Nucleotides: 174
Stems, first nucleotide, its partner, number of pairs: 001016006028174001031171001036166001040161006046152005062147006073139003079134006087115004093108004
Number, partner (000 for none) and nucleotide at each position: 001016u002015c003014c004013a005012u006011g007000g008000c009000g010000a011006c012005g013004u014003g015002g016001a017000a018000u019000c020000u021000g022000a023000a024000g025000g026000a027000a028174g029000c030000g031171a032000g033000c034000g035000g036166c037000a038000a039000a040161c041160c042159u043158c044157c045156g046152g047151u048150c049149u050148g051000a052000g053000g054000a055000a056000c057000a058000c059000g060000a061000a062147c063146u064145u065144c066143a067142u068000a069000u070000g071000a072000g073139g074138c075137u076000a077000u078000g079134g080133u081132a082131u083130c084129g085000u086000u087115g088114g089113a090112u091000g092000a093108g094107u095106u096105u097000g098000c099000a100000a101000a102000a103000c104000a105096a106095a107094a108093c109000a110000a111000a112090g113089u114088c115087c116000u117000u118000u119000c120000u121000g122000u123000c124000g125000a126000a127000a128000g129084c130083g131082a132081u133080a134079c135000u136000a137075a138074g139073u140000a141000a142067a143066u144065g145064a146063a147062g148050c149049a150048g151047a152046u153000a154000g155000a156045u157044g158043g159042a160041g161040g162000g163000a164000a165000a166036g167000a168000u169000u170000g171031u172000a173000c174028u
The record is a 174-nucleotide RNA sequence from Bacillus salacetis, which matches "Group II catalytic intron D1-D4-3" in Rfam. Rfam 15.1 lists 4,274 matches to the family in 1,585 species. A search with the family's covariance model found it, with a score of 146 bits.